[Rfam]
RNA sequence: GGCCAACAUCAGGAAGGGGCGAGCCCCUACCAACCUGCCUGACCUGGGCAAGGUGGUAUCCGCAAGGAGAUGUGGCCGAUCGGCAACCAAACAGGUACCU
Numbered sequence: 001g002g003c004c005a006a007c008a009u010c011a012g013g014a015a016g017g018g019g020c021g022a023g024c025c026c027c028u029a030c031c032a033a034c035c036u037g038c039c040u041g042a043c044c045u046g047g048g049c050a051a052g053g054u055g056g057u058a059u060c061c062g063c064a065a066g067g068a069g070a071u072g073u074g075g076c077c078g079a080u081c082g083g084c085a086a087c088c089a090a091a092c093a094g095g096u097a098c099c100u
Stems, first nucleotide, its partner, number of pairs: 006073005015028005029057003034053003037049003041096001043094001075084003